[Rfam]
RNA sequence: GGGAUAAAUUCCCUGGAUGUGGCCGAGAAGGCUGAACAAAAAG
Numbered sequence: 001g002g003g004a005u006a007a008a009u010u011c012c013c014u015g016g017a018u019g020u021g022g023c024c025g026a027g028a029a030g031g032c033u034g035a036a037c038a039a040a041a042a043g
Stems, first nucleotide, its partner, number of pairs: 001013004014039001016037001021033004
A member of the RNA family "eL15-Euryarchaeota ribosomal protein leader", 43 nucleotides long. The base pairs follow the family's consensus structure, which is taken from published work. For this family Rfam cites "Discovery of 20 novel ribosomal leader candidates in bacteria and archaea" (Eckert and Weinberg, BMC Microbiol, 2020). By type it is a cis-regulatory leader.